[Rfam]
tRNA: a 74-nucleotide sequence from Massilia sp. NR 4-1. Transfer RNA (tRNA) molecules are approximately 80 nucleotides in length. Rfam links the family to the GO term triplet codon-amino acid adaptor activity. A search with the family's covariance model found it, with a score of 69 bits.

RNA sequence: CUGCCCAUAGCUCAGUUGGAUAGAGCAUCAGCCUUCUAAGCUGAGGGUCGCUGGUUCGAACCCAGCUGGGCAGG
Numbered sequence: 001c002u003g004c005c006c007a008u009a010g011c012u013c014a015g016u017u018g019g020a021u022a023g024a025g026c027a028u029c030a031g032c033c034u035u036c037u038a039a040g041c042u043g044a045g046g047g048u049c050g051c052u053g054g055u056u057c058g059a060a061c062c063c064a065g066c067u068g069g070g071c072a073g074g
Stems, first nucleotide, its partner, number of pairs: 001073007010026004028044005050066005